[Rfam]
tRNA: a 74-nucleotide RNA from Photobacterium profundum. Taxonomically the source falls in Photobacterium profundum (Bacteria, Pseudomonadati, Gammaproteobacteria, Photobacterium).

RNA sequence: GCUCCCUUAGCUCAGCUGGAUAGAGCGUCCCCCUCCUAAGGGGAAGGCCACAAGUUCGAAUCUUGUAGGGGGCA
Numbered sequence: 001g002c003u004c005c006c007u008u009a010g011c012u013c014a015g016c017u018g019g020a021u022a023g024a025g026c027g028u029c030c031c032c033c034u035c036c037u038a039a040g041g042g043g044a045a046g047g048c049c050a051c052a053a054g055u056u057c058g059a060a061u062c063u064u065g066u067a068g069g070g071g072g073c074a
Base pairs, nucleotide, nucleotide: 001073002072003071004070005069006068007067010026011025012024013023028044029043030042031041032040050066051065052064053063054062

Rfam classes the family as a transfer RNA. Pairs were carried over by alignment from the consensus structure, which is taken from published work. It scores 67 bits against the family's covariance model.